[Rfam]
RNA sequence: GCGCCCGUAGUUCAAUGGAUAGAACGCCGGCCUCCGGAGCCGAAGAUCUGGGUUCGACUCCCGGCGGGCGUA
Numbered sequence: 001g002c003g004c005c006c007g008u009a010g011u012u013c014a015a016u017g018g019a020u021a022g023a024a025c026g027c028c029g030g031c032c033u034c035c036g037g038a039g040c041c042g043a044a045g046a047u048c049u050g051g052g053u054u055c056g057a058c059u060c061c062c063g064g065c066g067g068g069c070g071u072a
Stems, first nucleotide, its partner, number of pairs: 001071007010025004028042004048064005
tRNA: a 72-nucleotide sequence from Kiritimatiella glycovorans. Rfam's curators write: Transfer RNA (tRNA) molecules are approximately 80 nucleotides in length. The match comes from Rfam's covariance-model search (64 bits). The family's RNA type in Rfam is transfer RNA. The organism belongs to Kiritimatiella, within Bacteria.